[Rfam]
Rfam assigns this 83-nucleotide sequence from Aquarana catesbeiana to the family "Small nucleolar RNA MBII-202". The source organism's lineage runs through Eukaryota, Opisthokonta, Euteleostomi, Tetrapoda and Aquarana. The base pairs follow the family's consensus structure, which was predicted with PFOLD. On this family, see Huttenhofer et al., EMBO J 2001: "RNomics: an experimental approach that identifies 201 candidates for novel, small, non-messenger RNAs in mouse". It is annotated as a C/D-box small nucleolar RNA. A search with the family's covariance model found it, with a score of 66 bits.
RNA sequence: UGAUGACAAUUUCUCCGGAAUCUCUGAAUUCUUGUGAUGACUUUUGAACCCUUUUCCAGCUGAUGACUGUAGAACCCCUCUUC
Dot-bracket structure: .((.((........................................................................)).))